[Rfam]
RNA sequence: UAAGGCAGAUGUUCGAUUAAGUUCGGCACGUCAUGUGCCAACAUCGCACGACCUCACUUUGUGUGGG
Numbered sequence: 001u002a003a004g005g006c007a008g009a010u011g012u013u014c015g016a017u018u019a020a021g022u023u024c025g026g027c028a029c030g031u032c033a034u035g036u037g038c039c040a041a042c043a044u045c046g047c048a049c050g051a052c053c054u055c056a057c058u059u060u061g062u063g064u065g066g067g
Stems, first nucleotide, its partner, number of pairs: 011049002014046004025039005053067005
Bacillaceae-1 RNA: a 67-nucleotide sequence from Falsibacillus albus. The organism belongs to Falsibacillus, within Bacteria.